[Rfam]
RNA sequence: AAAAAGGGUCGGUUGGCUAUGCAUGCCACGCACAUCUUUUAAUUGAUGGGCGAUAUAUGGUUAUCAAGACAUAUGACCGAUAUAAUUUAUGGAUCAUAUAGGGUUAGCUUACUCGGCUAACCCUUAA
Numbered sequence: 001a002a003a004a005a006g007g008g009u010c011g012g013u014u015g016g017c018u019a020u021g022c023a024u025g026c027c028a029c030g031c032a033c034a035u036c037u038u039u040u041a042a043u044u045g046a047u048g049g050g051c052g053a054u055a056u057a058u059g060g061u062u063a064u065c066a067a068g069a070c071a072u073a074u075g076a077c078c079g080a081u082a083u084a085a086u087u088u089a090u091g092g093a094u095c096a097u098a099u100a101g102g103g104u105u106a107g108c109u110u111a112c113u114c115g116g117c118u119a120a121c122c123c124u125u126a127a
Base pairs, nucleotide, nucleotide: 008081009080010079011078012077014028015027016026017025029052030051031050033048034047035046036045054075055074056073057072058071059070100124101123102122103121104120105119106118107117110116
A member of the RNA family "U11 spliceosomal RNA" from Dendrobium catenatum, 127 nucleotides long. The match comes from Rfam's covariance-model search (65 bits). Taxonomically the source falls in Dendrobium (Eukaryota, Magnoliopsida, Asparagales, Dendrobieae).